Description:
MIR319 microRNA precursor family: a 109-nucleotide sequence from Theobroma cacao. Rfam 15.1 lists 168 matches to the family in 79 species. The family's consensus secondary structure was predicted with RNAalifold.
[Rfam]
RNA sequence: UAGAAGUGGGGGCUCCUUUCAGCCUAAAACAGCUUCAAGAUUUUGGUCUUGUGGCCUAUCUAAGCUCUUCUUGAUAUUUGCUUUGGACUGAAGGGAGCUCCUAAUUCUU
Numbered sequence: 001u002a003g004a005a006g007u008g009g010g011g012g013c014u015c016c017u018u019u020c021a022g023c024c025u026a027a028a029a030c031a032g033c034u035u036c037a038a039g040a041u042u043u044u045g046g047u048c049u050u051g052u053g054g055c056c057u058a059u060c061u062a063a064g065c066u067c068u069u070c071u072u073g074a075u076a077u078u079u080g081c082u083u084u085g086g087a088c089u090g091a092a093g094g095g096a097g098c099u100c101c102u103a104a105u106u107c108u109u
Base pairs, nucleotide, nucleotide: 007103008102009101010100011099012098013097014096015095016094017093018092021089022088024086025085026084027083028082